[Rfam]
This 340-nucleotide RNA from Tuber melanosporum belongs to the Rfam family "Group I catalytic intron". The literature on the family includes a 1996 paper in Science by Cate et al., "Crystal structure of a group I ribozyme domain: principles of RNA packing".

RNA sequence: CCAUAGCGAUCAAAAAGGAAUUAGGCCCCUUUUAAUGGUCGUAAAAAGUUUCGGUGAACCCGAAGCUAGUCUAACUAAUGUGAGAGUGUAUUAUAGUUAGGCCAAAUUCUCAAAUUGCGGGAACAUCCUAAAACUAUUUCAACCAAGCAAGAACGGUAACGUAUUUUGUGGCGCAGGUAAUGACUCGCGGUAAGGUAAAAUCGAAAUGGAUGCACGAAAGGAAAUGGGUAAUCCGCAGCCAAGUUCGAGUUUAAUUCGAAUGGAGUUCAACGACUAGACGGGAAUUGGCGUCGAUAUAUAAACGCUUAAGGUAUAGUCUAACCCUUGAUGAAAAUCAUGA
Numbered sequence: 001c002c003a004u005a006g007c008g009a010u011c012a013a014a015a016a017g018g019a020a021u022u023a024g025g026c027c028c029c030u031u032u033u034a035a036u037g038g039u040c041g042u043a044a045a046a047a048g049u050u051u052c053g054g055u056g057a058a059c060c061c062g063a064a065g066c067u068a069g070u071c072u073a074a075c076u077a078a079u080g081u082g083a084g085a086g087u088g089u090a091u092u093a094u095a096g097u098u099a100g101g102c103c104a105a106a107u108u109c110u111c112a113a114a115u116u117g118c119g120g121g122a123a124c125a126u127c128c129u130a131a132a133a134c135u136a137u138u139u140c141a142a143c144c145a146a147g148c149a150a151g152a153a154c155g156g157u158a159a160c161g162u163a164u165u166u167u168g169u170g171g172c173g174c175a176g177g178u179a180a181u182g183a184c185u186c187g188c189g190g191u192a193a194g195g196u197a198a199a200a201u202c203g204a205a206a207u208g209g210a211u212g213c214a215c216g217a218a219a220g221g222a223a224a225u226g227g228g229u230a231a232u233c234c235g236c237a238g239c240c241a242a243g244u245u246c247g248a249g250u251u252u253a254a255u256u257c258g259a260a261u262g263g264a265g266u267u268c269a270a271c272g273a274c275u276a277g278a279c280g281g282g283a284a285u286u287g288g289c290g291u292c293g294a295u296a297u298a299u300a301a302a303c304g305c306u307u308a309a310g311g312u313a314u315a316g317u318c319u320a321a322c323c324c325u326u327g328a329u330g331a332a333a334a335u336c337a338u339g340a
Base pairs, nucleotide, nucleotide: 005042007041008040009039010038011037012036105286106285107284108283109282111280116237117236118235119234120233121232126228127227128226238266239265243261244260245259246258247257248256249255250254270319272318273317274316275315276314288305289304290303291302294299326337327336328335329334

NCBI's taxonomy places the organism under Eukaryota, Opisthokonta, Pezizomycetes, Tuberaceae, Tuber.
It scores 96 bits against the family's covariance model.
Its family is annotated with Group I intron splicing in the Gene Ontology.